[Rfam]
RNA sequence: AAACUUACAUGGCUGGGGGGAUCUCGUGAUCAAGAAGGCGGGACCCCCAUGGUGAGGCCCAUGCAUUGCACAUUAGCAGGGACUGACCUGUGUGCCAGCCUCGAGUUGAAGUCACCCAACAGCUAAAUUUUUUGUUAUCUUGGUUACUGAAGAAAACUGACUCUACCGUG
Numbered sequence: 001a002a003a004c005u006u007a008c009a010u011g012g013c014u015g016g017g018g019g020g021a022u023c024u025c026g027u028g029a030u031c032a033a034g035a036a037g038g039c040g041g042g043a044c045c046c047c048c049a050u051g052g053u054g055a056g057g058c059c060c061a062u063g064c065a066u067u068g069c070a071c072a073u074u075a076g077c078a079g080g081g082a083c084u085g086a087c088c089u090g091u092g093u094g095c096c097a098g099c100c101u102c103g104a105g106u107u108g109a110a111g112u113c114a115c116c117c118a119a120c121a122g123c124u125a126a127a128u129u130u131u132u133u134g135u136u137a138u139c140u141u142g143g144u145u146a147c148u149g150a151a152g153a154a155a156a157c158u159g160a161c162u163c164u165a166c167c168g169u170g
Stems, first nucleotide, its partner, number of pairs: 012123004016048005023042005049091004054087001056084002060080001062078003093118002098113001100111002139170001141168003145165001
RNA: U1 spliceosomal RNA